[Rfam]
Nucleotides: 110
Base pairs, nucleotide, nucleotide: 007097012060013059014058017033018032019031020030021029041054042053043052044051066091067090068089069088072085073084074083075082
Number, partner (000 for none) and nucleotide at each position: 001000u002000a003000a004000u005000c006000a007097a008000a009000a010000a011000c012060g013059g014058g015000g016000u017033g018032c019031u020030c021029g022000c023000u024000g025000a026000a027000a028000g029021c030020g031019g032018g033017c034000u035000g036000a037000g038000a039000g040000u041054a042053g043052g044051c045000u046000g047000u048000u049000u050000u051044g052043c053042c054041u055000u056000g057000a058014c059013c060012c061000a062000u063000u064000a065000a066091c067090c068089u069088g070000a071000u072085u073084u074083g075082g076000a077000u078000a079000a080000u081000g082075c083074c084073a085072a086000c087000g088069u089068a090067g091066g092000g093000a094000a095000c096000a097007u098000a099000a100000a101000a102000a103000a104000g105000c106000a107000u108000g109000u110000a

Rfam assigns this 110-nucleotide RNA from Hungatella hathewayi to the family "TPP riboswitch aptamer (THI element)". NCBI's taxonomy places the organism under Bacteria, Bacillati, Bacillota, Lachnospirales, Hungatella. The family's consensus secondary structure is taken from published work.